The family of this 106-nucleotide sequence from Canis lupus is "mir-8834 microRNA precursor family".

RNA sequence: AGGAGGAACAGCCCUAGUGGCCGCCGCCAGCUCUGGAGCCCUGGAUUAAGCUCCCACAGUAGCUCCAGAGCUCUCUGUCUGCAGGGCCUGGAGGCUUCGGGGAGGG
Numbered sequence: 001a002g003g004a005g006g007a008a009c010a011g012c013c014c015u016a017g018u019g020g021c022c023g024c025c026g027c028c029a030g031c032u033c034u035g036g037a038g039c040c041c042u043g044g045a046u047u048a049a050g051c052u053c054c055c056a057c058a059g060u061a062g063c064u065c066c067a068g069a070g071c072u073c074u075c076u077g078u079c080u081g082c083a084g085g086g087c088c089u090g091g092a093g094g095c096u097u098c099g100g101g102g103a104g105g106g
Stems, first nucleotide, its partner, number of pairs: 002098004009090003012086003019079003023075001026073001029072009041059003
Dot-bracket structure: .((((...((((((....(((.(..(..(((((((((...(((.............)))....)))))))))).).)))....))).)))....))))........
The base pairs follow the family's consensus structure, which was predicted with RNAalifold. The source organism's lineage runs through Eukaryota, Gnathostomata, Teleostomi, Boreoeutheria and Canis lupus. Rfam links the family to the GO terms RISC complex and miRNA-mediated post-transcriptional gene silencing.